[Rfam]
RNA sequence: GAGUGUGACAGCUCUUUUAGAAUUUGUCUAUUGGGGGACCAGCAGUUAGUGUAAUGGCUAUGUCGCUGGACUCCCAU
Numbered sequence: 001g002a003g004u005g006u007g008a009c010a011g012c013u014c015u016u017u018u019a020g021a022a023u024u025u026g027u028c029u030a031u032u033g034g035g036g037g038a039c040c041a042g043c044a045g046u047u048a049g050u051g052u053a054a055u056g057g058c059u060a061u062g063u064c065g066c067u068g069g070a071c072u073c074c075c076a077u
Stems, first nucleotide, its partner, number of pairs: 034074004039069005